small nucleolar RNA snoR143: a 164-nucleotide RNA from Dioscorea zingiberensis. Pairs were carried over by alignment from the consensus structure, which was predicted with RNAalifold. It scores 98 bits against the family's covariance model. The family's RNA type in Rfam is H/ACA-box small nucleolar RNA.

[Rfam]
RNA sequence: UUGCAUUAUUGAUAAGUAAGGCCACUAUUGAUUUUAUUUUGUGGUCUUGAACAAUGGUGCAUAAAGAGAAAGCCGUUCAGUCGGCAGCGGCCAGACAACCGUGGGGAUGGAUCCACAGAUGGCUGCUCUCAGUGCAGUUUAUCUACUGAUUCCAUCUCAUAUUA
Numbered sequence: 001u002u003g004c005a006u007u008a009u010u011g012a013u014a015a016g017u018a019a020g021g022c023c024a025c026u027a028u029u030g031a032u033u034u035u036a037u038u039u040u041g042u043g044g045u046c047u048u049g050a051a052c053a054a055u056g057g058u059g060c061a062u063a064a065a066g067a068g069a070a071a072g073c074c075g076u077u078c079a080g081u082c083g084g085c086a087g088c089g090g091c092c093a094g095a096c097a098a099c100c101g102u103g104g105g106g107a108u109g110g111a112u113c114c115a116c117a118g119a120u121g122g123c124u125g126c127u128c129u130c131a132g133u134g135c136a137g138u139u140u141a142u143c144u145a146c147u148g149a150u151u152c153c154a155u156c157u158c159a160u161a162u163u164a
Stems, first nucleotide, its partner, number of pairs: 002061005009053001017049009027039001104158008122140001124136002